[Rfam]
RNA sequence: CCGCGCUAGACGGGGAGGUAGCGGUGCCCUGUAACCUGCAACCCGCUGUAGCAGGGUUGAAUUCCUGAGCUGAGGGCAUACCUUGUGGGGUCUGGCCUUGGUAAGUGGCGAAGAAGUUUGGGUCCUGCGCAACAGGAGGUCCUGAACCGUGUCAGGUCCGGGAGGAAGCAGCACUAAGGGAUUUUUCUUGUGUGCCGCAGGGGAGCCUGGAUGGAGUUAACUGCCCGGGUAACGCCCGGAAGGUCUGUUCGAAGCCAGGUGCGCGG
Numbered sequence: 001c002c003g004c005g006c007u008a009g010a011c012g013g014g015g016a017g018g019u020a021g022c023g024g025u026g027c028c029c030u031g032u033a034a035c036c037u038g039c040a041a042c043c044c045g046c047u048g049u050a051g052c053a054g055g056g057u058u059g060a061a062u063u064c065c066u067g068a069g070c071u072g073a074g075g076g077c078a079u080a081c082c083u084u085g086u087g088g089g090g091u092c093u094g095g096c097c098u099u100g101g102u103a104a105g106u107g108g109c110g111a112a113g114a115a116g117u118u119u120g121g122g123u124c125c126u127g128c129g130c131a132a133c134a135g136g137a138g139g140u141c142c143u144g145a146a147c148c149g150u151g152u153c154a155g156g157u158c159c160g161g162g163a164g165g166a167a168g169c170a171g172c173a174c175u176a177a178g179g180g181a182u183u184u185u186u187c188u189u190g191u192g193u194g195c196c197g198c199a200g201g202g203g204a205g206c207c208u209g210g211a212u213g214g215a216g217u218u219a220a221c222u223g224c225c226c227g228g229g230u231a232a233c234g235c236c237c238g239g240a241a242g243g244u245c246u247g248u249u250c251g252a253a254g255c256c257a258g259g260u261g262c263g264c265g266g
Base pairs, nucleotide, nucleotide: 001266002265003264004263005262006261009058010057011056012030013029014028015027017025019023035055036054037053038052039051064259065258066257067256069255070254071253074250075249076248077247078246080244081243082242083241084240086238087237088236089235093231094230097228098227100225101224102223105221106220107218108217109216116212117211118210119209120208121207122206123205124201125200126199127198128197129196130192131191133190134189135188136187137186138183139182140181141180142179143178149174150173151172152171157166158165159164
RNA: Bacterial large signal recognition particle RNA